Annotation: This 65-nucleotide RNA sequence belongs to the Rfam family "S15-Flavobacteria ribosomal protein leader". Rfam classes the family as a cis-regulatory leader. The family is grouped with related families in Rfam's "Ribosomal Protein S15 Leader clan". It is one of the family's seed sequences. For this family Rfam cites "Discovery of 20 novel ribosomal leader candidates in bacteria and archaea" (Eckert and Weinberg, BMC Microbiol, 2020).

RNA sequence: UAUCUUUGCAAAUCGAAAGAUACUCUUUCGUUUACAUAACAAUCAUUUACAACAAUAUUAGCAUG
Numbered sequence: 001u002a003u004c005u006u007u008g009c010a011a012a013u014c015g016a017a018a019g020a021u022a023c024u025c026u027u028u029c030g031u032u033u034a035c036a037u038a039a040c041a042a043u044c045a046u047u048u049a050c051a052a053c054a055a056u057a058u059u060a061g062c063a064u065g
Base pairs, nucleotide, nucleotide: 014030015029016028017027018026019025